[Rfam]
RNA sequence: UUUUCCGAGGAGCGUUGCAGCGCACCCCCGCACCAUCCGGUGCCCGGCGGUGCGUGAGGCUCGGAACCCGCCAGCGGCCCCCGGCCCGGCGUUCGCAACGACGCUCACCCACG
Numbered sequence: 001u002u003u004u005c006c007g008a009g010g011a012g013c014g015u016u017g018c019a020g021c022g023c024a025c026c027c028c029c030g031c032a033c034c035a036u037c038c039g040g041u042g043c044c045c046g047g048c049g050g051u052g053c054g055u056g057a058g059g060c061u062c063g064g065a066a067c068c069c070g071c072c073a074g075c076g077g078c079c080c081c082c083g084g085c086c087c088g089g090c091g092u093u094c095g096c097a098a099c100g101a102c103g104c105u106c107a108c109c110c111a112c113g
Stems, first nucleotide, its partner, number of pairs: 003066006021054006

Rfam assigns this 113-nucleotide RNA from Comamonas antarctica to the family "SAH (S-adenosyl-L-homocysteine) riboswitch aptamer". A search with the family's covariance model found it, with a score of 47 bits. The family's consensus secondary structure is taken from published work. Taxonomically the source falls in Comamonas (Bacteria, Pseudomonadota, Burkholderiales, Comamonadaceae).